[Rfam]
RNA: c-di-GMP-I-GGC riboswitch aptamer
RNA sequence: GCAGACAAAGGCAAAAUCAGCGCGAGCUGGUGACGCAAAGCCACCGGCCUCAAUCAUUGGUGAAUGAGGUAGCGGGGUUACCCUGU
Numbered sequence: 001g002c003a004g005a006c007a008a009a010g011g012c013a014a015a016a017u018c019a020g021c022g023c024g025a026g027c028u029g030g031u032g033a034c035g036c037a038a039a040g041c042c043a044c045c046g047g048c049c050u051c052a053a054u055c056a057u058u059g060g061u062g063a064a065u066g067a068g069g070u071a072g073c074g075g076g077g078u079u080a081c082c083c084u085g086u
Stems, first nucleotide, its partner, number of pairs: 001086001004082001011036002016031006034072001039079004044075003047070006